[Rfam]
RNA sequence: GAAAAUCGUUGGGGGUGCCCGCAAUCGCUUGAGCGGGCUGAGAAAAUACCCUUGGAACCUGAUCCGGUUAGCACCGGCGUAGGAAAACGCGCAUGACCCGCC
Numbered sequence: 001g002a003a004a005a006u007c008g009u010u011g012g013g014g015g016u017g018c019c020c021g022c023a024a025u026c027g028c029u030u031g032a033g034c035g036g037g038c039u040g041a042g043a044a045a046a047u048a049c050c051c052u053u054g055g056a057a058c059c060u061g062a063u064c065c066g067g068u069u070a071g072c073a074c075c076g077g078c079g080u081a082g083g084a085a086a087a088c089g090c091g092c093a094u095g096a097c098c099c100g101c102c
Stems, first nucleotide, its partner, number of pairs: 007089004011052004016046001017038005058083004064077004